[Rfam]
RNA sequence: UUCUUAUCCAGAGUGGCGGAGGGACUGGCCCUAUGAAGCCCGACAACCAGCACUUUUCAAUGUGUAUGGUGUCAAUUCCAGGAGCGCAGCGAUGCGCUCAAAAGAUGAGAA
Numbered sequence: 001u002u003c004u005u006a007u008c009c010a011g012a013g014u015g016g017c018g019g020a021g022g023g024a025c026u027g028g029c030c031c032u033a034u035g036a037a038g039c040c041c042g043a044c045a046a047c048c049a050g051c052a053c054u055u056u057u058c059a060a061u062g063u064g065u066a067u068g069g070u071g072u073c074a075a076u077u078c079c080a081g082g083a084g085c086g087c088a089g090c091g092a093u094g095c096g097c098u099c100a101a102a103a104g105a106u107g108a109g110a111a
Stems, first nucleotide, its partner, number of pairs: 001111008013041001015040003021031003025081004042073004047069002050065004077103001082099006
The record is a 111-nucleotide RNA sequence from Sporolactobacillus shoreae, which matches "SAM riboswitch aptamer (S box leader)" in Rfam. The family's consensus secondary structure is taken from published work.